[Rfam]
Nucleotides: 062
Base pairs, nucleotide, nucleotide: 034059035058036057037056038055040053041052042051043050044049
Number, partner (000 for none) and nucleotide at each position: 001000g002000a003000g004000c005000g006000u007000u008000a009000c010000a011000g012000c013000u014000c015000u016000u017000u018000u019000a020000g021000a022000a023000g024000a025000u026000g027000u028000c029000g030000a031000g032000c033000a034059g035058g036057u037056u038055u039000c040053c041052u042051g043050g044049u045000c046000c047000a048000c049044a050043c051042u052041g053040g054000a055038a056037a057036a058035c059034c060000u061000a062000a